Rfam assigns this 48-nucleotide RNA to the family "CRISPR RNA direct repeat element".
Its family is annotated with defense response in the Gene Ontology.
Pairs were carried over by alignment from the consensus structure, which was predicted with WAR.
RNA sequence: GUUUUGAUUUAUUUUUAAAUUAGGAUUUUGAAACCAUGUAGAAACAUC
Numbered sequence: 001g002u003u004u005u006g007a008u009u010u011a012u013u014u015u016u017a018a019a020u021u022a023g024g025a026u027u028u029u030g031a032a033a034c035c036a037u038g039u040a041g042a043a044a045c046a047u048c
Stems, first nucleotide, its partner, number of pairs: 014033003018029002